Rfam assigns this 123-nucleotide RNA from Papaver somniferum to the family "U5 spliceosomal RNA". Taxonomically the source falls in Papaver (Eukaryota, Streptophytina, Tracheophyta, Mesangiospermae). The family has 180 seed sequences and 28,527 matches in Rfam 15.1.
RNA sequence: CAGCCGUGCCGUAAGCUCAAAGCGAACUAUUCUUUCGCCUUUUACUAAAGAAUAUCGUGUGCUUGCCGUGAAUAAGCGGGCAUACCCCCUAUUUUUGGAGGGUUUCUCUUUUCUAAGAGGAAC
Numbered sequence: 001c002a003g004c005c006g007u008g009c010c011g012u013a014a015g016c017u018c019a020a021a022g023c024g025a026a027c028u029a030u031u032c033u034u035u036c037g038c039c040u041u042u043u044a045c046u047a048a049a050g051a052a053u054a055u056c057g058u059g060u061g062c063u064u065g066c067c068g069u070g071a072a073u074a075a076g077c078g079g080g081c082a083u084a085c086c087c088c089c090u091a092u093u094u095u096u097g098g099a100g101g102g103u104u105u106c107u108c109u110u111u112u113c114u115a116a117g118a119g120g121a122a123c
Stems, first nucleotide, its partner, number of pairs: 003081003009068001011066006018059002028054008102123006